Shown here is a 57-nucleotide RNA sequence from Beta vulgaris, a member of the family "Plastid-rps18 3UTR RNA". Rfam's curators write: Plastid rps18 is a non-coding RNA (ncRNA) present in plastids. It was identified as a short stem-loop motif in the 3 prime untranslate region (3UTR) of rps18 gene. The base pairs follow the family's consensus structure, which was predicted with LocARNA. By type it is a cis-regulatory element. The organism belongs to Beta vulgaris, within Eukaryota.
[Rfam]
RNA sequence: UGCAAGUAUUUUACGAUUAAGAAGCGACUGUCUCUUGUACGAAUCGUUGAUAAGUUU
Numbered sequence: 001u002g003c004a005a006g007u008a009u010u011u012u013a014c015g016a017u018u019a020a021g022a023a024g025c026g027a028c029u030g031u032c033u034c035u036u037g038u039a040c041g042a043a044u045c046g047u048u049g050a051u052a053a054g055u056u057u
Base pairs, nucleotide, nucleotide: 018037019036020035021034022033024031025030